Record summary: Rfam assigns this 52-nucleotide RNA sequence from Thalassobacter sp. 16PALIMAR09 to the family "serC leader". From the family's description: This family is a putative regulatory RNA structure that is found upstream of the serC-serA operon in some alpha-proteobacteria. The final stem of the structure overlaps the ribosome binding site of the serC reading frame. Rfam classes the family as a cis-regulatory leader. Lineage of the source: Bacteria > Pseudomonadati > Pseudomonadota > Rhodobacterales > Thalassobacter. Its family is annotated with regulation of gene expression in the Gene Ontology. A reference for the family is Corbino et al. (2005), "Evidence for a second class of S-adenosylmethionine riboswitches and other regulatory RNA motifs in alpha-proteobacteria", Genome Biol.
[Rfam]
RNA sequence: UGGCGGGACACCUCGCCCCAACGCGAGGCAAAUAUCUGAAAGGGUAUCCAUC
Numbered sequence: 001u002g003g004c005g006g007g008a009c010a011c012c013u014c015g016c017c018c019c020a021a022c023g024c025g026a027g028g029c030a031a032a033u034a035u036c037u038g039a040a041a042g043g044g045u046a047u048c049c050a051u052c
Stems, first nucleotide, its partner, number of pairs: 011028006032047006